[Rfam]
RNA: LOOT RNA
RNA sequence: UGCCUAAACUUCGCGCAAGCGGAGCAUGGCAAUAAAACCCGCUACAGGGACGAGAGCUCCUCGUCAGUUUGCCUGUAGCGGGUCAUUAGCCGAAAGGUUAGUGGGGAUUCCGAAAGGAGUUCC
Numbered sequence: 001u002g003c004c005u006a007a008a009c010u011u012c013g014c015g016c017a018a019g020c021g022g023a024g025c026a027u028g029g030c031a032a033u034a035a036a037a038c039c040c041g042c043u044a045c046a047g048g049g050a051c052g053a054g055a056g057c058u059c060c061u062c063g064u065c066a067g068u069u070u071g072c073c074u075g076u077a078g079c080g081g082g083u084c085a086u087u088a089g090c091c092g093a094a095a096g097g098u099u100a101g102u103g104g105g106g107a108u109u110c111c112g113a114a115a116g117g118a119g120u121u122c123c
Base pairs, nucleotide, nucleotide: 001031002030003029004028009024010023011022012021013020014019038082039081040080041079042078043077044076045075046074047073048072049065050064051063052062053061054060084103085102086101087100088099089098090097091096104123105122106121107120108119109118110117111116